[Rfam]
Nucleotides: 075
Stems, first nucleotide, its partner, number of pairs: 013042004019075007026038001028036001047064005
Number, partner (000 for none) and nucleotide at each position: 001000g002000u003000a004000g005000c006000a007000a008000a009000u010000u011000c012000a013042g014041g015040c016039u017000a018000u019075a020074g021073c022072a023071g024070a025069a026038g027000c028036g029000u030000u031000c032000a033000a034000a035000g036028c037000a038026c039016a040015g041014c042013c043000c044000u045000g046000u047064c048063a049062g050061a051060u052000u053000c054000c055000a056000a057000c058000a059000c060051a061050u062049c063048u064047g065000u066000g067000a068000c069025u070024u071023c072022u073021g074020c075019u
The record is a 75-nucleotide RNA sequence from Alligator sinensis, which matches "Mammalian CPEB3 ribozyme" in Rfam. Pairs were carried over by alignment from the consensus structure, which is taken from published work.